[Rfam]
RNA: nhaA-I RNA
Organism: Sphingomonas sp. OV641
RNA sequence: GGGUGCUUGGUUCCGCGUCGGGGCGAGCAGGACGUGCGUUGGUCGGGCCGCCAGCG
Numbered sequence: 001g002g003g004u005g006c007u008u009g010g011u012u013c014c015g016c017g018u019c020g021g022g023g024c025g026a027g028c029a030g031g032a033c034g035u036g037c038g039u040u041g042g043u044c045g046g047g048c049c050g051c052c053a054g055c056g
Base pairs, nucleotide, nucleotide: 005028006027007026008025009024011022012021037056038055039054040053041052042051043050